[Rfam]
RNA: sRNA-Xcc1
RNA sequence: GUCGGGAGGGCGGCAGCCAUACAACACCCGCAAGGGGAAAACUGCCCGCCGGACUUGUGCCCGGUUAUGAGCCUCCCGACACCCUCGG
Numbered sequence: 001g002u003c004g005g006g007a008g009g010g011c012g013g014c015a016g017c018c019a020u021a022c023a024a025c026a027c028c029c030g031c032a033a034g035g036g037g038a039a040a041a042c043u044g045c046c047c048g049c050c051g052g053a054c055u056u057g058u059g060c061c062c063g064g065u066u067a068u069g070a071g072c073c074u075c076c077c078g079a080c081a082c083c084c085u086c087g088g
Base pairs, nucleotide, nucleotide: 001080002079003078004077005076006075007074008073009072012046013045014044015043027036028035029034048065049064050063051062052061